[Rfam]
RNA sequence: GCAGAGACUAGAGUCACAUCCCGACACAGAACUUGUCCUGGUGUGCUACAGUUCUCGGAGAGAAUUUGCUGGUCUUGAUUCACUGGGGGGGGGGGGACAAUUAAUGUCCCCAUUAGUGCCCAGAUCAGAAACAUAG
Numbered sequence: 001g002c003a004g005a006g007a008c009u010a011g012a013g014u015c016a017c018a019u020c021c022c023g024a025c026a027c028a029g030a031a032c033u034u035g036u037c038c039u040g041g042u043g044u045g046c047u048a049c050a051g052u053u054c055u056c057g058g059a060g061a062g063a064a065u066u067u068g069c070u071g072g073u074c075u076u077g078a079u080u081c082a083c084u085g086g087g088g089g090g091g092g093g094g095g096g097a098c099a100a101u102u103a104a105u106g107u108c109c110c111c112a113u114u115a116g117u118g119c120c121c122a123g124a125u126c127a128g129a130a131a132c133a134u135a136g
Stems, first nucleotide, its partner, number of pairs: 002058001004056003007052003012047002015045006023037004069128007077120001081118006093111006
The record is a 136-nucleotide RNA from Marmota marmota, which matches "Small nucleolar RNA SNORA3/SNORA45 family" in Rfam. Rfam 15.1 lists 2,080 matches to the family in 639 species. The members of this family belong to the H/ACA class of snoRNAs which are thought to guide the sites of modification of uridines to pseudouridines. This family includes mouse snoMBI-28 and human homologues ACA3 (SNORA3) and ACA3-2 (SNORA45). Both ACA3 and ACA3-2 share the same host gene. MBI-28, ACA3 and ACA3-2 are all predicted to guide the pseudouridylation of residues in 28S rRNA. The source organism's lineage runs through Eukaryota, Chordata, Vertebrata, Sciuridae and Marmota marmota. It is annotated as an H/ACA-box small nucleolar RNA. The family's consensus secondary structure was predicted with RNAalifold. Rfam links the family to the GO terms nucleolus and RNA processing.